[Rfam]
RNA sequence: CUAGCAUUUUCACAGGUCCUCCCAAGGUUAUGGGACCAGGAUUUGGUAGCUGGUGCUGAGAGAAAACCUUUGGUUGCAUCUUUGCCCUGGAACUCUGCUAGUGGCAGCUGCCAUUUGAGGGACCCAG
Numbered sequence: 001c002u003a004g005c006a007u008u009u010u011c012a013c014a015g016g017u018c019c020u021c022c023c024a025a026g027g028u029u030a031u032g033g034g035a036c037c038a039g040g041a042u043u044u045g046g047u048a049g050c051u052g053g054u055g056c057u058g059a060g061a062g063a064a065a066a067c068c069u070u071u072g073g074u075u076g077c078a079u080c081u082u083u084g085c086c087c088u089g090g091a092a093c094u095c096u097g098c099u100a101g102u103g104g105c106a107g108c109u110g111c112c113a114u115u116u117g118a119g120g121g122a123c124c125c126a127g
Base pairs, nucleotide, nucleotide: 003057004056005055006054007053008052013045014044015043017041018040019039020038022034023033067121068120069119070118071117072116073115075113076112079110082107083106084105085104086103087101088100089099090098
Rfam assigns this 127-nucleotide RNA sequence from Orycteropus afer to the family "Small nucleolar RNA SNORA30/SNORA37 family".
The members of this family belong to the H/ACA class of snoRNAs that guide the sites of modification of uridines to pseudouridines. This family includes human ACA30 (SNORA30), ACA37 (SNORA37) and the mouse homolog MBI-26.
The family's RNA type in Rfam is H/ACA-box small nucleolar RNA.